Source information
Metazoan signal recognition particle RNA: a 298-nucleotide RNA from Strigamia maritima. Its Rfam clan is "SRP clan". Rfam describes the family as follows. The signal recognition particle (SRP) is a universally conserved ribonucleoprotein. It is involved in the co-translational targeting of proteins to membranes. The eukaryotic SRP consists of a 300-nucleotide 7S RNA and six proteins: SRPs 72, 68, 54, 19, 14, and 9. Pairs were carried over by alignment from the consensus structure, which is taken from published work. NCBI's taxonomy places the organism under Eukaryota, Metazoa, Protostomia, Chilopoda, Strigamia. Its family is annotated with signal recognition particle, endoplasmic reticulum targeting and SRP-dependent cotranslational protein targeting to membrane, signal sequence recognition in the Gene Ontology.
[Rfam]
RNA sequence: UCUGGGAGUGGUGGCGCGCUCCUGUAAUCCAGCUACCUGGAGGUAUGGGUGAGCGGACGGCUUGAGAGUGGGAGUUCUGCCGGCUACCGUCCUAUGUUGAUCGGGUGUCCGCACUAAGCACGGUAUCGACAUGGUGGUCCGAGAGGAGUCUUGGAUUUCCAGGUUGUCUAAGGAGGAGAGAACCGGGCCAGGAUGGUGACAUAGCAGCCAAAAUCUCCCGUAUGGUGCAGUAGUGGGAUCGCGCCUGUGAAUAGGCAGUGGUCGGCAGCCCAUUCAAUAUAGUCGAACCUCAUCCUUU
Numbered sequence: 001u002c003u004g005g006g007a008g009u010g011g012u013g014g015c016g017c018g019c020u021c022c023u024g025u026a027a028u029c030c031a032g033c034u035a036c037c038u039g040g041a042g043g044u045a046u047g048g049g050u051g052a053g054c055g056g057a058c059g060g061c062u063u064g065a066g067a068g069u070g071g072g073a074g075u076u077c078u079g080c081c082g083g084c085u086a087c088c089g090u091c092c093u094a095u096g097u098u099g100a101u102c103g104g105g106u107g108u109c110c111g112c113a114c115u116a117a118g119c120a121c122g123g124u125a126u127c128g129a130c131a132u133g134g135u136g137g138u139c140c141g142a143g144a145g146g147a148g149u150c151u152u153g154g155a156u157u158u159c160c161a162g163g164u165u166g167u168c169u170a171a172g173g174a175g176g177a178g179a180g181a182a183c184c185g186g187g188c189c190a191g192g193a194u195g196g197u198g199a200c201a202u203a204g205c206a207g208c209c210a211a212a213a214u215c216u217c218c219c220g221u222a223u224g225g226u227g228c229a230g231u232a233g234u235g236g237g238a239u240c241g242c243g244c245c246u247g248u249g250a251a252u253a254g255g256c257a258g259u260g261g262u263c264g265g266c267a268g269c270c271c272a273u274u275c276a277a278u279a280u281a282g283u284c285g286a287a288c289c290u291c292a293u294c295c296u297u298u
Stems, first nucleotide, its partner, number of pairs: 002043002004023007028041003047295007058285005066275007077268011089256001091255005097249001102247007109237002112235005118228004123223004127166004132161003136157009167173002175218005186209003193202003